The record is a 75-nucleotide RNA sequence from Streptomyces sp. CK4412, which matches "ASpks TB sRNA" in Rfam. The source organism's lineage runs through Bacteria, Bacillati, Actinomycetota, Actinomycetes and Streptomyces. It is one of the family's seed sequences. On this family, see Arnvig and Young, Mol Microbiol 2009: "Identification of small RNAs in Mycobacterium tuberculosis".
RNA sequence: CUUCAACGACCCCAGCCACAACGGCCGGUCGCCCGGACGGUCCUGGCCAUACGUGGCCAGCAACGCCUGCGCCUC
Numbered sequence: 001c002u003u004c005a006a007c008g009a010c011c012c013c014a015g016c017c018a019c020a021a022c023g024g025c026c027g028g029u030c031g032c033c034c035g036g037a038c039g040g041u042c043c044u045g046g047c048c049a050u051a052c053g054u055g056g057c058c059a060g061c062a063a064c065g066c067c068u069g070c071g072c073c074u075c
Base pairs, nucleotide, nucleotide: 015025016024017023032071033069038065039064043060044059045058047056048055049054

The family's RNA type in Rfam is antisense RNA.